This 75-nucleotide RNA sequence from Cnephaeus nilssonii belongs to the Rfam family "mir-9193 microRNA precursor family". Lineage of the source: Eukaryota > Opisthokonta > Teleostomi > Euteleostomi > Cnephaeus.

[Rfam]
Nucleotides: 075
Stems, first nucleotide, its partner, number of pairs: 003073002006070001010066001012064006019058004024053003028049002031046005
Number, partner (000 for none) and nucleotide at each position: 001000c002000u003073u004072g005000g006070g007000g008000g009000u010066g011000g012064g013063g014062g015061a016060u017059c018000c019058c020057c021056u022055c023000a024053g025052c026051c027000a028049g029048g030000a031046u032045u033044g034043c035042a036000a037000g038000a039000g040000g041000g042035u043034g044033c045032a046031g047000g048029c049028c050000a051026g052025g053024u054000c055022g056021a057020g058019g059017g060016a061015u062014c063013c064012c065000a066010c067000u068000g069000g070006u071000g072004c073003a074000u075000g